[Rfam]
RNA sequence: ACAGACCGCCAGACCCGGCUUAUCGCAAGAUAAGCUAUGACCCGUGCAAGCCGGGUGCGCCUCCUACGUGGAGGCGCGGCGCUUAUGGUCAAGGA
Numbered sequence: 001a002c003a004g005a006c007c008g009c010c011a012g013a014c015c016c017g018g019c020u021u022a023u024c025g026c027a028a029g030a031u032a033a034g035c036u037a038u039g040a041c042c043c044g045u046g047c048a049a050g051c052c053g054g055g056u057g058c059g060c061c062u063c064c065u066a067c068g069u070g071g072a073g074g075c076g077c078g079g080c081g082c083u084u085a086u087g088g089u090c091a092a093g094g095a
Stems, first nucleotide, its partner, number of pairs: 004090004014079002016050001018035006040056004057077008
Annotation: A member of the RNA family "Twister_sister_ribozyme", 95 nucleotides long. The literature on the family includes a 2015 paper in Nat Chem Biol by Weinberg et al., "New classes of self-cleaving ribozymes revealed by comparative genomics analysis". It is one of the family's seed sequences.